RNA sequence: GCAUGGUAAUGAAUUUAUGGCAGGUCCUCCUCUGUGGGCCUCUCAUAGUGUACCCAUGCCAGAGUAAAUUGCAGCCUCGAACCAUUACCCAGCCUCCUUACUUGUGGGCUGUGAGCACUGAAGGGGGUUGUACAAUG
Numbered sequence: 001g002c003a004u005g006g007u008a009a010u011g012a013a014u015u016u017a018u019g020g021c022a023g024g025u026c027c028u029c030c031u032c033u034g035u036g037g038g039c040c041u042c043u044c045a046u047a048g049u050g051u052a053c054c055c056a057u058g059c060c061a062g063a064g065u066a067a068a069u070u071g072c073a074g075c076c077u078c079g080a081a082c083c084a085u086u087a088c089c090c091a092g093c094c095u096c097c098u099u100a101c102u103u104g105u106g107g108g109c110u111g112u113g114a115g116c117a118c119u120g121a122a123g124g125g126g127g128u129u130g131u132a133c134a135a136u137g
Base pairs, nucleotide, nucleotide: 001059002058003057004056005054006053007052008051015048016047017046018045019044020043022041023040024039025037026036072130073129074128075127076126077125083120084119088115090111091110092109093108094107095106
Shown here is a 137-nucleotide sequence, a member of the family "Small nucleolar RNA SNORA42/SNORA80 family". Rfam 15.1 lists 1,535 matches to the family in 183 species. The family's RNA type in Rfam is H/ACA-box small nucleolar RNA. About the family: The members of this family belong to the H/ACA class of snoRNAs that guide the sites of modification of uridines to pseudouridines.